[Rfam]
RNA sequence: UGGGUGGUCAACAAGCGCGGGCCUGGCGGAGCGCGGCGGCGCGCAGAGACCGCGAGGCGACCGGGAGCGGCUGGGCCCCCCGCGGCGCGCUACGCGGUUAGGCCGGGAGCCGCGCCAGUCGGAGCCCCCGGCCGACCGCGGCCCGCCGGCCUCUCAACGUCGGUCCGUCCGUAGUGUAGCCAGCGGGCAUGACCGACCCACCAGGGGCGCCGCCGCCGCCGCCGCCGGCGCUCAAAGGGCGCGGGUGAAGAAGAAAGUCCGGCCCCGCUCGUCCCGAAGCGAGGAGGUGGCCCAAAGCGAGGAGGUGUCCCGGAGCGAGGAGGUGUCCGGGAGCGAGGAGGUGUCCCGGAGCGAGGAGGUGUCCCGGAGCGAGGAGGUG
Numbered sequence: 001u002g003g004g005u006g007g008u009c010a011a012c013a014a015g016c017g018c019g020g021g022c023c024u025g026g027c028g029g030a031g032c033g034c035g036g037c038g039g040c041g042c043g044c045a046g047a048g049a050c051c052g053c054g055a056g057g058c059g060a061c062c063g064g065g066a067g068c069g070g071c072u073g074g075g076c077c078c079c080c081c082g083c084g085g086c087g088c089g090c091u092a093c094g095c096g097g098u099u100a101g102g103c104c105g106g107g108a109g110c111c112g113c114g115c116c117a118g119u120c121g122g123a124g125c126c127c128c129c130g131g132c133c134g135a136c137c138g139c140g141g142c143c144c145g146c147c148g149g150c151c152u153c154u155c156a157a158c159g160u161c162g163g164u165c166c167g168u169c170c171g172u173a174g175u176g177u178a179g180c181c182a183g184c185g186g187g188c189a190u191g192a193c194c195g196a197c198c199c200a201c202c203a204g205g206g207g208c209g210c211c212g213c214c215g216c217c218g219c220c221g222c223c224g225c226c227g228g229c230g231c232u233c234a235a236a237g238g239g240c241g242c243g244g245g246u247g248a249a250g251a252a253g254a255a256a257g258u259c260c261g262g263c264c265c266c267g268c269u270c271g272u273c274c275c276g277a278a279g280c281g282a283g284g285a286g287g288u289g290g291c292c293c294a295a296a297g298c299g300a301g302g303a304g305g306u307g308u309c310c311c312g313g314a315g316c317g318a319g320g321a322g323g324u325g326u327c328c329g330g331g332a333g334c335g336a337g338g339a340g341g342u343g344u345c346c347c348g349g350a351g352c353g354a355g356g357a358g359g360u361g362u363c364c365c366g367g368a369g370c371g372a373g374g375a376g377g378u379g
Stems, first nucleotide, its partner, number of pairs: 020104008037094002041090002043053002046050001061082001063080003067076002144361004150355001167188005205233008266281004
Notes:
The record is a 379-nucleotide RNA from Microcebus murinus, which matches "Bag-1 internal ribosome entry site (IRES)" in Rfam. Lineage of the source: Eukaryota > Deuterostomia > Gnathostomata > Tetrapoda > Microcebus. The literature on the family includes a 2001 paper in Oncogene by Coldwell et al., "The p36 isoform of BAG-1 is translated by internal ribosome entry following heat shock". About the family: This family represents the bag-1 internal ribosome entry site (IRES). When expressed the BAG-1 protein is known to enhance the anti-apoptotic properties of Bcl-2. Although bag-1 translation usually occurs via a cap-dependent mechanism it has been found to contain a IRES in its 5' UTR. Translation via the IRES has been found to be common following heat shock when cap-dependent scanning is compromised. Pairs were carried over by alignment from the consensus structure, which was predicted with PFOLD.